[Rfam]
RNA: Glycine riboswitch aptamer
Organism: Microbacterium saperdae
Nucleotides: 098
Stems, first nucleotide, its partner, number of pairs: 001096002004093005015035006037082003040078002044076001046074001050069002
Number, partner (000 for none) and nucleotide at each position: 001096c002095c003000a004093c005092u006091c007090u008089g009000a010000a011000a012000a013000g014000c015035g016034a017033u018032u019031c020030c021000g022000a023000u024000g025000c026000u027000c028000u029000c030020g031019g032018g033017g034016u035015c036000c037082g038081c039080c040078g041077a042000c043000g044076g045000u046074g047000a048000a049000a050069g051068c052000c053000c054000u055000g056000c057000u058000c059000c060000g061000u062000g063000c064000a065000c066000a067000g068051g069050u070000g071000a072000a073000g074046c075000u076044c077041u078040c079000a080039g081038g082037c083000c084000u085000a086000u087000g088000a089008c090007a091006g092005a093004g094000g095002g096001g097000g098000a